[Rfam]
RNA sequence: GGCAAAAUGAUGAGAACUUUGUUAUCUGAAAUUGAUGUGGAACUUAUAUCAUUAUGGUCUUCAAAGUUCGCUGAUUGCC
Number, nucleotide and partner (000 for none) at each position: 001g079002g078003c077004a076005a075006a000007a000008u000009g000010a000011u000012g000013a000014g000015a000016a000017c000018u000019u000020u000021g000022u000023u000024a000025u000026c000027u000028g000029a000030a000031a000032u000033u000034g000035a000036u000037g000038u000039g000040g000041a000042a000043c000044u000045u000046a000047u000048a000049u000050c000051a000052u000053u000054a000055u000056g000057g000058u000059c000060u000061u000062c000063a000064a000065a000066g000067u000068u000069c000070g000071c000072u000073g000074a000075u005076u004077g003078c002079c001

The record is a 79-nucleotide sequence from Cucurbita maxima, which matches "Small nucleolar RNA R160" in Rfam.
The pairing is the family consensus, mapped onto this sequence.
Rfam links the family to the GO terms nucleolus and RNA processing.
Rfam's curators write: snoR160 is a C/D box small nucleolar RNA, which acts as a methylation guide for 25S ribosomal RNA in plants. snoR160 has been alternatively named snoZ270 in rice.
Rfam 15.1 lists 799 matches to the family in 221 species.
The organism belongs to Cucurbita, within Eukaryota.
By type it is a C/D-box small nucleolar RNA.